[Rfam]
Nucleotides: 088
Base pairs, nucleotide, nucleotide: 012037013036017032018031019030020029021028022027040082041081042080043079045078046077047076048073049072050071055067056066057065058064
Number, partner (000 for none) and nucleotide at each position: 001000a002000a003000u004000a005000a006000u007000a008000a009000u010000g011000g012037g013036c014000a015000a016000a017032c018031c019030u020029g021028u022027u023000g024000a025000a026000a027022a028021a029020c030019a031018g032017g033000g034000a035000c036013g037012c038000a039000a040082a041081g042080c043079u044000c045078c046077a047076g048073g049072u050071c051000u052000a053000a054000c055067g056066c057065u058064u059000u060000u061000a062000a063000a064058a065057a066056g067055u068000u069000a070000a071050g072049a073048u074000g075000g076047c077046u078045g079043a080042g081041u082040u083000g084000c085000u086000u087000a088000a